[Rfam]
RNA sequence: UAGAACAAUGUGGAUAAGGGAAGUCGGCAAAACAGAUCCGUAACUUCGGGAUAAGGAUUGGCUCUAAGGGUCGGGCGCGUCGGGCCUCGGGUGGACGGUUCGGCGGCGGGAGGCCACUAGCCGGGCAACCGGCCGGCGGCUUCCUGCUGCUGGGCUCUGACGCCCUUGGCAGGCUUCGUGCCGUCCGGCGCGCGUUUAACGACCAACUUAGAACUGGCGCGGACAGGGGGAAUCUGACUGUCUAAUUAAAACAUAGCAUUGCGAUGGCCAGAAAGUGGUGUUGACGCAAUGUGAUUUCUGCCCAGUGCUCUGAAUGUCAAAGUGAAGUAAUUCAACCAAGCGCGGGUAAACGGCGGGAGUAACUAUGACUCUCUUAAGGUAGCCAAAUGCCUCGUCAUCUAAUUAGUGACGCGCAUGAAUGGAUCAACGAGAUUCCCACUGUCCCUAUCUACUAUCUAGCGAAACCACAGCCAAGGGAACGGGCUUGGCAGA
Dot-bracket structure: ((((.....(((((((.(((..............(((((....(....).....)))))((.(((((((((((.((((((((((((..(((.....(((((((((((((((((((.((.(((((....))))).)).)))))))))))))))))))......)))..)))..............)))))))))......)))))..)))))).))(...).......(((((((((..(((.........)))..((((((((...((((.....)))).....))))))))...(((.(((..((((((.(..(((.....((((....)))).....))))))))..)))))((((((.......))))))(...)...............(((((.......)))))..........)))....)).)))))))....))).)))))))..))))............(((((........)))))....
Numbered sequence: 001u002a003g004a005a006c007a008a009u010g011u012g013g014a015u016a017a018g019g020g021a022a023g024u025c026g027g028c029a030a031a032a033c034a035g036a037u038c039c040g041u042a043a044c045u046u047c048g049g050g051a052u053a054a055g056g057a058u059u060g061g062c063u064c065u066a067a068g069g070g071u072c073g074g075g076c077g078c079g080u081c082g083g084g085c086c087u088c089g090g091g092u093g094g095a096c097g098g099u100u101c102g103g104c105g106g107c108g109g110g111a112g113g114c115c116a117c118u119a120g121c122c123g124g125g126c127a128a129c130c131g132g133c134c135g136g137c138g139g140c141u142u143c144c145u146g147c148u149g150c151u152g153g154g155c156u157c158u159g160a161c162g163c164c165c166u167u168g169g170c171a172g173g174c175u176u177c178g179u180g181c182c183g184u185c186c187g188g189c190g191c192g193c194g195u196u197u198a199a200c201g202a203c204c205a206a207c208u209u210a211g212a213a214c215u216g217g218c219g220c221g222g223a224c225a226g227g228g229g230g231a232a233u234c235u236g237a238c239u240g241u242c243u244a245a246u247u248a249a250a251a252c253a254u255a256g257c258a259u260u261g262c263g264a265u266g267g268c269c270a271g272a273a274a275g276u277g278g279u280g281u282u283g284a285c286g287c288a289a290u291g292u293g294a295u296u297u298c299u300g301c302c303c304a305g306u307g308c309u310c311u312g313a314a315u316g317u318c319a320a321a322g323u324g325a326a327g328u329a330a331u332u333c334a335a336c337c338a339a340g341c342g343c344g345g346g347u348a349a350a351c352g353g354c355g356g357g358a359g360u361a362a363c364u365a366u367g368a369c370u371c372u373c374u375u376a377a378g379g380u381a382g383c384c385a386a387a388u389g390c391c392u393c394g395u396c397a398u399c400u401a402a403u404u405a406g407u408g409a410c411g412c413g414c415a416u417g418a419a420u421g422g423a424u425c426a427a428c429g430a431g432a433u434u435c436c437c438a439c440u441g442u443c444c445c446u447a448u449c450u451a452c453u454a455u456c457u458a459g460c461g462a463a464a465c466c467a468c469a470g471c472c473a474a475g476g477g478a479a480c481g482g483g484c485u486u487g488g489c490a491g492a
Stems, first nucleotide, its partner, number of pairs: 001458004010452007018444003035059005044049001060215002063212006069204005075193009084170003089165003097156019117136002120133005216220001228437007235429002239253003256292008267279004296423003300354003305351002307347004312343001315342003323334004355373006374378001394410005471488005